[Rfam]
RNA sequence: GCCGCUUUAUGUGACUGACGGAUGAUUGUGGGUUACCACAGUGAAGCAUAAAGCUUGUAAAAGGCCGACCGUCUGGGCAACCCUG
Dot-bracket structure: ...(((((((((..(.[[[[[......((((....))))...)..))))))))).........(((..]]]]]..))).......

ZMP/ZTP riboswitch aptamer (pfl RNA motif): an 85-nucleotide sequence from Luoshenia tenuis. NCBI's taxonomy places the organism under Bacteria, Bacillota, Clostridia, Christensenellaceae, Luoshenia. A search with the family's covariance model found it, with a score of 61 bits. Pairs were carried over by alignment from the consensus structure, which is taken from published work. Rfam links the family to the GO terms regulation of purine nucleotide biosynthetic process and one-carbon metabolic process.